Record summary: This 134-nucleotide RNA from Myotis myotis belongs to the Rfam family "Small nucleolar RNA SNORA42/SNORA80 family". The match comes from Rfam's covariance-model search (113 bits). Lineage of the source: Eukaryota > Bilateria > Sarcopterygii > Vespertilionidae > Myotis. The family's RNA type in Rfam is H/ACA-box small nucleolar RNA. Pairs were carried over by alignment from the consensus structure, which was predicted with RNAalifold.

RNA sequence: GCAUGGGUUUGGAUUUAUGGCAGGCCCGUCCUCCUGAGUCUCUCAUAGUACCCCAUGCCAGGGCAAACCAUGGCCUUGAACUAUUGCCCAGCCUCUGCCUACAGGCUAAACACAGUGAAGCAGGUUGCACAGUG
Numbered sequence: 001g002c003a004u005g006g007g008u009u010u011g012g013a014u015u016u017a018u019g020g021c022a023g024g025c026c027c028g029u030c031c032u033c034c035u036g037a038g039u040c041u042c043u044c045a046u047a048g049u050a051c052c053c054c055a056u057g058c059c060a061g062g063g064c065a066a067a068c069c070a071u072g073g074c075c076u077u078g079a080a081c082u083a084u085u086g087c088c089c090a091g092c093c094u095c096u097g098c099c100u101a102c103a104g105g106c107u108a109a110a111c112a113c114a115g116u117g118a119a120g121c122a123g124g125u126u127g128c129a130c131a132g133u134g
Stems, first nucleotide, its partner, number of pairs: 001058004005053004015048006022041003026036001071127006082117002090107005